[Rfam]
A member of the RNA family "6S / SsrS RNA" from Mesorhizobium japonicum, 156 nucleotides long.
RNA sequence: GACGGUCUGUGCUUCCCGGCAGGAGAACAUUUUCCCCGGGGCCUUAACGAUCCUUAGGGAGCUGUCCCUGGGAAGACCCGUGGGUUUUCUCACACGGCGCCCACCUACUUUGUAGGUUCCCGGGAUCGCUCUCUCCACCGGUUGUGUGGAUCGUCA
Numbered sequence: 001g002a003c004g005g006u007c008u009g010u011g012c013u014u015c016c017c018g019g020c021a022g023g024a025g026a027a028c029a030u031u032u033u034c035c036c037c038g039g040g041g042c043c044u045u046a047a048c049g050a051u052c053c054u055u056a057g058g059g060a061g062c063u064g065u066c067c068c069u070g071g072g073a074a075g076a077c078c079c080g081u082g083g084g085u086u087u088u089c090u091c092a093c094a095c096g097g098c099g100c101c102c103a104c105c106u107a108c109u110u111u112g113u114a115g116g117u118u119c120c121c122g123g124g125a126u127c128g129c130u131c132u133c134u135c136c137a138c139c140g141g142u143u144g145u146g147u148g149g150a151u152c153g154u155c156a
Stems, first nucleotide, its partner, number of pairs: 002154011015141001017140003033125004038120006057102003061098005070091009
By type it is a non-coding RNA gene. The sequence is in the family's curated seed alignment. The organism belongs to Mesorhizobium japonicum, within Bacteria.